[Rfam]
RNA sequence: UAGACAGAUUACUGUAUUCGACUGUAUUCACGGCGGAAAACAUGGGAUUAUACUGUUUUUAAACGAAAGUGUAUCAAUUAACGUAAUAGACUCCU
Dot-bracket structure: ..((....(((.(((.((.((.((.((.(((....(((((((...........))))))....)....))).)))).)))).))).)))..))..